[Rfam]
RNA: Guanidine-II riboswitch aptamer (mini-ykkC)
RNA sequence: CUUGCGGGACGACCCGUAAGCGCUUCGACCAGCGGGGACGGCCCC
Number, nucleotide and partner (000 for none) at each position: 001c020002u019003u018004g017005c016006g015007g014008g013009a000010c000011g000012a000013c008014c007015c006016g005017u004018a003019a002020g001021c000022g000023c000024u000025u000026c000027g000028a000029c000030c000031a000032g000033c000034g045035g044036g043037g042038a000039c000040g000041g000042c037043c036044c035045c034